[Rfam]
RNA sequence: GCGCCCGUAGCUCAGCUGGAUAGAGUGUCGGACUUCGAAUCCGCAGGUCGUAGGUUCAAAUCCUACCGGGCGCA
Numbered sequence: 001g002c003g004c005c006c007g008u009a010g011c012u013c014a015g016c017u018g019g020a021u022a023g024a025g026u027g028u029c030g031g032a033c034u035u036c037g038a039a040u041c042c043g044c045a046g047g048u049c050g051u052a053g054g055u056u057c058a059a060a061u062c063c064u065a066c067c068g069g070g071c072g073c074a
Stems, first nucleotide, its partner, number of pairs: 001073007010026004029043004050066005
Notes
This 74-nucleotide RNA sequence from Sulfobacillus sp. hq2 belongs to the Rfam family "tRNA". Rfam's curators write: Transfer RNA (tRNA) molecules are approximately 80 nucleotides in length.